[Rfam]
RNA sequence: UCGAGAAACGUGGCCCGGUGUCCGCAUCUGACCGAUAAAGUGGUCGUGGAGCGUCGCGGGGCGCAGCCCCCCGCCGUUCCGGAACCACCCAUGUUUGAGCCAGCAGCCGCUGCAACCCCAGGGAG
Dot-bracket structure: ...............................................((((((..(.((((.......)))).)))))))....................((((....)))).............
This 125-nucleotide RNA from Streptomyces liangshanensis belongs to the Rfam family "Streptomyces-metK RNA". It scores 89 bits against the family's covariance model.